Shown here is a 98-nucleotide sequence from Bacillus mesophilum, a member of the family "SAM riboswitch aptamer (S box leader)".

RNA sequence: UUCUUAUCAAGAGAGGUUGAGGGACUGGCCCUAUGACACCUCGGCAGCGGAAUCUAAUUCUGUGCCAACUCCAGCAAGCACGGCUUGAAAGAUAAGAA
Numbered sequence: 001u002u003c004u005u006a007u008c009a010a011g012a013g014a015g016g017u018u019g020a021g022g023g024a025c026u027g028g029c030c031c032u033a034u035g036a037c038a039c040c041u042c043g044g045c046a047g048c049g050g051a052a053u054c055u056a057a058u059u060c061u062g063u064g065c066c067a068a069c070u071c072c073a074g075c076a077a078g079c080a081c082g083g084c085u086u087g088a089a090a091g092a093u094a095a096g097a098a
Base pairs, nucleotide, nucleotide: 001098002097003096004095005094006093007092008091013042014041015040016039017038021031022030023029025074026073027072028071043066044065045064046063048062049061050060051059052058053057070090075087076086077085078084079083